[Rfam]
RNA sequence: GGGAGUAGAAGGGUGUCUGGUGUGCCCCCCGGUCUUCAACACCGGUGUGAGGAGCUAAUACUUCUCGGGUGGGUUCGAUUCCCACCUGCUCUC
Numbered sequence: 001g002g003g004a005g006u007a008g009a010a011g012g013g014u015g016u017c018u019g020g021u022g023u024g025c026c027c028c029c030c031g032g033u034c035u036u037c038a039a040c041a042c043c044g045g046u047g048u049g050a051g052g053a054g055c056u057a058a059u060a061c062u063u064c065u066c067g068g069g070u071g072g073g074u075u076c077g078a079u080u081c082c083c084a085c086c087u088g089c090u091c092u093c
Base pairs, nucleotide, nucleotide: 001093002092003091004090005089006088007087008086011027012026013025014024015023017022029045030044031043032042033041048067049066050065051064052063070084071083072082073081
Shown here is a 93-nucleotide RNA from Eubacterium oxidoreducens, a member of the family "Selenocysteine transfer RNA". The base pairs follow the family's consensus structure, which is taken from published work. The family has 109 seed sequences and 4,211 matches in Rfam 15.1. Rfam links the family to the GO term triplet codon-amino acid adaptor activity.